[Rfam]
RNA: mir-34 microRNA precursor family
Nucleotides: 071
Stems, first nucleotide, its partner, number of pairs: 003069004009063002013059004018054005024049007
Number, partner (000 for none) and nucleotide at each position: 001000g002000g003069u004068c005067g006066c007000c008000a009063g010062g011000c012000a013059g014058u015057g016056u017000a018054g019053u020052u021051a022050g023000c024049u025048g026047a027046u028045u029044g030043c031000a032000u033000g034000a035000c036000u037000g038000a039000c040000u041000c042000a043030g044029u045028a046027a047026u048025c049024a050022c051021u052020a053019a054018c055000c056016a057015c058014a059013c060000a061000g062010c063009c064000a065000g066006g067005u068004g069003a070000a071000c